[Rfam]
The record is a 55-nucleotide RNA from Lozanella enantiophylla, which matches "Plastid-psbA-3 3UTR RNA" in Rfam. About the family: Plastid psbA-3 is a non-coding RNA (ncRNA) present in plastids. It was identified in inverted repeat sequences in the 3 prime untranslate region (3UTR) of photosystem II quinone-binding protein (psbA). The organism belongs to Lozanella, within Eukaryota. The sequence is in the family's curated seed alignment. Rfam classes the family as a cis-regulatory element.

RNA sequence: AGGAGCAAUAAUAAACUUCUUGAUAGAACAAGAAGUUUAUUAUUGCUCCUUUAUU
Numbered sequence: 001a002g003g004a005g006c007a008a009u010a011a012u013a014a015a016c017u018u019c020u021u022g023a024u025a026g027a028a029c030a031a032g033a034a035g036u037u038u039a040u041u042a043u044u045g046c047u048c049c050u051u052u053a054u055u
Base pairs, nucleotide, nucleotide: 001050002049003048004047005046006045007044008043009042010041011040012039017034018033019032020031021030022029